[Rfam]
Nucleotides: 269
Stems, first nucleotide, its partner, number of pairs: 003078005019065003023061006031046005089187006099135006106124007140172005148164007189263004194258003204249005211241004216231003219225001
Number, partner (000 for none) and nucleotide at each position: 001000c002000a003078c004077c005076a006075a007074a008000a009000c010000u011000c012000u013000u014000u015000g016000u017000c018000a019065g020064g021063a022000g023061g024060u025059a026058u027057u028056u029000a030000c031046u032045u033044g034043c035042a036000u037000u038000u039000u040000u041000u042035u043034g044033c045032a046031a047000a048000a049000u050000a051000u052000c053000c054000a055000u056028a057027a058026a059025u060024g061023c062000g063021u064020c065019u066000g067000u068000u069000a070000c071000a072000g073000u074007u075006u076005u077004g078003g079000a080000a081000g082000a083000u084000c085000a086000a087000u088000a089187u090186u091185a092184c093183u094182c095000g096000c097000c098000u099135u100134u101133u102132a103131c104130u105000c106124u107123u108122c109121u110120u111119u112118c113000g114000u115000u116000u117000u118112g119111a120110a121109g122108g123107a124106a125000a126000u127000a128000u129000g130104a131103g132102u133101g134100a135099a136000a137000u138000c139000a140172g141171a142170a143169g144168g145000a146000c147000a148164a149163u150162c151161g152160u153159c154158g155000u156000u157000u158154u159153g160152a161151u162150g163149a164148u165000a166000u167000a168144c169143c170142u171141u172140c173000g174000c175000c176000u177000c178000u179000u180000u181000a182094g183093a184092g185091u186090a187089a188000g189263g190262a191261c192260g193000a194258u195257c196256u197000u198000c199000a200000g201000a202000g203000u204249u205248g206247a207246g208245u209000c210000u211241u212240u213239g214238a215000u216231c217230u218229u219225a220000a221000u222000u223000u224000u225219u226000u227000u228000u229218a230217a231216g232000a233000c234000u235000a236000a237000u238214u239213c240212a241211a242000a243000g244000u245208a246207c247206u248205c249204g250000u251000a252000g253000u254000a255000u256196a257195g258194a259000a260192c261191g262190u263189c264000a265000c266000a267000a268000u269000u
The record is a 269-nucleotide sequence from Vanderwaltozyma polyspora, which matches "Small nucleolar RNA snR191" in Rfam. Rfam classes the family as an H/ACA-box small nucleolar RNA. Pairs were carried over by alignment from the consensus structure, which was predicted with WAR. Its family is annotated with RNA processing and nucleolus in the Gene Ontology. The source organism's lineage runs through Eukaryota, Ascomycota, Saccharomycetales, Vanderwaltozyma and Vanderwaltozyma polyspora.